[Rfam]
RNA sequence: UAAGUUCGAUUCGAGAUAUGGGUUCAGUGGUAAAGGCCCCAAUGUUGGGGUUUUUUUAUAGUUGAAUUUAACGCAACUAUAAUAACAGCAUGACUUUAUUCGCUGGGCUAUAUGCCCUUUUUUU
Numbered sequence: 001u002a003a004g005u006u007c008g009a010u011u012c013g014a015g016a017u018a019u020g021g022g023u024u025c026a027g028u029g030g031u032a033a034a035g036g037c038c039c040c041a042a043u044g045u046u047g048g049g050g051u052u053u054u055u056u057u058a059u060a061g062u063u064g065a066a067u068u069u070a071a072c073g074c075a076a077c078u079a080u081a082a083u084a085a086c087a088g089c090a091u092g093a094c095u096u097u098a099u100u101c102g103c104u105g106g107g108c109u110a111u112a113u114g115c116c117c118u119u120u121u122u123u124u
Stems, first nucleotide, its partner, number of pairs: 033054009105117004